[Rfam]
Nucleotides: 206
Base pairs, nucleotide, nucleotide: 009189010188011187015185016184017183018182
Number, partner (000 for none) and nucleotide at each position: 001000u002000c003000c004000u005000c006000c007000a008000c009189a010188g011187u012000u013000c014000u015185c016184c017183g018182a019000c020000u021000c022000u023000g024000g025000u026000u027000u028000u029000c030000c031000g032000c033000a034000a035000g036000g037000a038000a039000u040000g041000c042000u043000c044000c045000u046000c047000c048000g049000g050000g051000g052000c053000c054000a055000c056000c057000u058000c059000a060000c061000u062000g063000g064000g065000u066000u067000c068000u069000g070000g071000a072000c073000u074000g075000u076000c077000c078000g079000c080000a081000g082000u083000a084000c085000g086000u087000c088000g089000c090000a091000g092000c093000u094000u095000c096000g097000a098000u099000c100000c101000u102000g103000u104000a105000u106000c107000a108000g109000g110000a111000a112000c113000c114000u115000c116000c117000a118000a119000g120000c121000c122000u123000g124000c125000c126000g127000c128000g129000c130000a131000u132000g133000g134000a135000u136000u137000a138000c139000u140000g141000c142000g143000g144000c145000c146000a147000u148000c149000g150000c151000u152000u153000c154000g155000g156000c157000g158000u159000c160000a161000g162000u163000c164000c165000c166000g167000c168000g169000g170000g171000g172000u173000g174000a175000a176000u177000c178000a179000g180000c181000u182018u183017c184016g185015g186000a187011a188010c189009u190000u191000a192000a193000c194000c195000c196000u197000a198000a199000g200000u201000u202000u203000u204000c205000a206000u

Shown here is a 206-nucleotide part of an RNA from Cercophora samala, a member of the family "Ascomycota telomerase RNA".
The base pairs follow the family's consensus structure.
It scores 872 bits against the family's covariance model.
Its Rfam clan is "Telomerase clan".